The record is a 194-nucleotide RNA sequence from Paenibacillus pini, which matches "6S / SsrS RNA" in Rfam. A search with the family's covariance model found it, with a score of 84 bits.
RNA sequence: UACAUCCUGCGAUGUUCGCCACGGUUGAUUGUUAUUUUGAACCAAUGACAAUGUCUACCGGGAGAUCAAUUAUGAAACGCGGCUGAAAAGCCCUGUCUAUACGACAUGGGGACUUCAAAACCGUUUAUGAGAUCACCCACCUGCUAAAGCAGGUUCAGAAGACAGAUUGAUCGGACGGCAUAGGCGGGUUUCCU
Numbered sequence: 001u002a003c004a005u006c007c008u009g010c011g012a013u014g015u016u017c018g019c020c021a022c023g024g025u026u027g028a029u030u031g032u033u034a035u036u037u038u039g040a041a042c043c044a045a046u047g048a049c050a051a052u053g054u055c056u057a058c059c060g061g062g063a064g065a066u067c068a069a070u071u072a073u074g075a076a077a078c079g080c081g082g083c084u085g086a087a088a089a090g091c092c093c094u095g096u097c098u099a100u101a102c103g104a105c106a107u108g109g110g111g112a113c114u115u116c117a118a119a120a121c122c123g124u125u126u127a128u129g130a131g132a133u134c135a136c137c138c139a140c141c142u143g144c145u146a147a148a149g150c151a152g153g154u155u156c157a158g159a160a161g162a163c164a165g166a167u168u169g170a171u172c173g174g175a176c177g178g179c180a181u182a183g184g185c186g187g188g189u190u191u192c193c194u
Base pairs, nucleotide, nucleotide: 004190006188007187008186009185010184012181013180014179015178017177018176033162035160036159038157039156040155041154042153043152060138061137062136064134065133066132067131075126076125077124078123079122086115087114091111092110093109094108095107

Taxonomically the source falls in Paenibacillus pini (Bacteria, Bacillati, Bacilli, Paenibacillus).
E. coli 6S RNA was the first non coding RNA to be sequenced, but its function was unknown until recently.
By type it is a non-coding RNA gene.